[Rfam]
RNA sequence: CUGAGCAGGUGAUGAUACAAAGUUAUCUCUGUCUGAAAAAGAUCUUUUCUCUUGUGGAGUUGUGAUUCUGAAGCUCAG
Numbered sequence: 001c002u003g004a005g006c007a008g009g010u011g012a013u014g015a016u017a018c019a020a021a022g023u024u025a026u027c028u029c030u031g032u033c034u035g036a037a038a039a040a041g042a043u044c045u046u047u048u049c050u051c052u053u054g055u056g057g058a059g060u061u062g063u064g065a066u067u068c069u070g071a072a073g074c075u076c077a078g
Base pairs, nucleotide, nucleotide: 001078002077003076004075005074006073

A member of the RNA family "Small nucleolar RNA R38" from Terrapene triunguis, 78 nucleotides long. Pairs were carried over by alignment from the consensus structure, which was predicted with PFOLD. Its family is annotated with RNA processing and nucleolus in the Gene Ontology. Lineage of the source: Eukaryota > Deuterostomia > Archelosauria > Durocryptodira > Terrapene. By type it is a C/D-box small nucleolar RNA. snoR38 is a C/D box small nucleolar RNA conserved across yeast, human, Arabidopsis and rice. It is encoded in the intron of elongation factor-1 gamma in both pombe and cerevisiae. snoR38 guides the methylation of 2'-O-ribose sites in 28S rRNA.